Shown here is a 76-nucleotide RNA sequence from Nicotiana tabacum, a member of the family "MIR6145 microRNA precursor family". The match comes from Rfam's covariance-model search (56 bits). Rfam 15.1 lists 52 matches to the family in 9 species.

RNA sequence: GCAGGAGCUAUUGCUACAUAUAGCACUGGCCGGCAUGACAAAUUUUGGUUGGUGCUUGUGUAGCAAUCCUCCGGCU
Numbered sequence: 001g002c003a004g005g006a007g008c009u010a011u012u013g014c015u016a017c018a019u020a021u022a023g024c025a026c027u028g029g030c031c032g033g034c035a036u037g038a039c040a041a042a043u044u045u046u047g048g049u050u051g052g053u054g055c056u057u058g059u060g061u062a063g064c065a066a067u068c069c070u071c072c073g074g075c076u
Base pairs, nucleotide, nucleotide: 001075002074004072005071006070007069010067011066012065013064014063015062016061017060018059019058022056023055024054025053026052027051028050029049030048031047